[Rfam]
RNA: Small nucleolar RNA ZL1
Organism: Ceratopteris richardii
RNA sequence: AUGUAUGCAUAUGCAUGUGUAUGCAUAUGCAUGUGUAUGCAUAUGCAUGUGUAUGCAUAUGCAUGUGUAUGCAUAUGCAUGUGUAUGCAUAUGCAUGUGUAUGCAUAUGCAUGUAUGUAUGCAUAUGCAUGUGUGUAUGCAUAUGCAUUGUGUAUGUGUGCAUGUGUAUGUAUAUGUGUAUGUGUGUAUGCAUA
Dot-bracket structure: ...(((((((...(((..........((((((...((((.(.(.((((((((((((........(((((....)))))........)))))))))))).).).)))).((((......))))..((((((......)))))).((((.((((......)))))))).))))))........)))...)))))))